[Rfam]
RNA: c-di-AMP riboswitch aptamer (ydaO/yuaA leader)
Organism: Cohnella luojiensis
RNA sequence: AUCAAAAUCCGGCCAAAACCGACUGGUGCGGGGGAAAAGAAUCAAAGUACAUAUCGGAUAUCUAACCGUAAUGUACUAGGGGUGAAUCGCAAUCAUUGCGUAGGGCUGAUCUCCCAGUCCGAAUCCGACAGCUAACCUCGCCGGCCAAUUCUAGGAGGACAA
Numbered sequence: 001a002u003c004a005a006a007a008u009c010c011g012g013c014c015a016a017a018a019c020c021g022a023c024u025g026g027u028g029c030g031g032g033g034g035a036a037a038a039g040a041a042u043c044a045a046a047g048u049a050c051a052u053a054u055c056g057g058a059u060a061u062c063u064a065a066c067c068g069u070a071a072u073g074u075a076c077u078a079g080g081g082g083u084g085a086a087u088c089g090c091a092a093u094c095a096u097u098g099c100g101u102a103g104g105g106c107u108g109a110u111c112u113c114c115c116a117g118u119c120c121g122a123a124u125c126c127g128a129c130a131g132c133u134a135a136c137c138u139c140g141c142c143g144g145c146c147a148a149u150u151c152u153a154g155g156a157g158g159a160c161a162a
Stems, first nucleotide, its partner, number of pairs: 011146004018027003028141006080126003088100004103120004